[Rfam]
RNA: c-di-GMP-I-GGC riboswitch aptamer
Organism: Syntrophotalea acetylenivorans
RNA sequence: UCCGACAAUAGCAAACCCGUAGCAAUAUGGGGACGCAAAGCCAUGGGUCCUGAUAAGGAUCGCCAGGCUGCCGAAG
Numbered sequence: 001u002c003c004g005a006c007a008a009u010a011g012c013a014a015a016c017c018c019g020u021a022g023c024a025a026u027a028u029g030g031g032g033a034c035g036c037a038a039a040g041c042c043a044u045g046g047g048u049c050c051u052g053a054u055a056a057g058g059a060u061c062g063c064c065a066g067g068c069u070g071c072c073g074a075a076g
Stems, first nucleotide, its partner, number of pairs: 001076001003073002011036002016031006034062001039069004044065003047060003